This 35-nucleotide sequence from Cricetulus griseus belongs to the Rfam family "Iron response element I". Taxonomically the source falls in Cricetulus (Eukaryota, Gnathostomata, Euteleostomi, Euarchontoglires). A reference for the family is Hentze et al. (1987), "Identification of the iron-responsive element for the translational regulation of human ferritin mRNA", Science. The family's consensus secondary structure is taken from published work. By type it is a cis-regulatory element.

[Rfam]
RNA sequence: UGAUCUCUGGCUUCAACAGUGCUUGGACAGAACCU
Numbered sequence: 001u002g003a004u005c006u007c008u009g010g011c012u013u014c015a016a017c018a019g020u021g022c023u024u025g026g027a028c029a030g031a032a033c034c035u
Stems, first nucleotide, its partner, number of pairs: 002034001004032001006031003010028001012027005017021001